A member of the RNA family "Mammalian CPEB3 ribozyme" from Alligator mississippiensis, 75 nucleotides long.
The source organism's lineage runs through Eukaryota, Vertebrata, Dipnotetrapodomorpha, Sauropsida and Alligator.

RNA sequence: CAGCCAUUUCAAGGCCAUAGCAGAAGUGCCCACGGUGUGGCCAUGGCAGAUUCUAAUGAAUCUGCAAAUUCUGCU
Numbered sequence: 001c002a003g004c005c006a007u008u009u010c011a012a013g014g015c016c017a018u019a020g021c022a023g024a025a026g027u028g029c030c031c032a033c034g035g036u037g038u039g040g041c042c043a044u045g046g047c048a049g050a051u052u053c054u055a056a057u058g059a060a061u062c063u064g065c066a067a068a069u070u071c072u073g074c075u
Stems, first nucleotide, its partner, number of pairs: 013042004019075007026038003047064007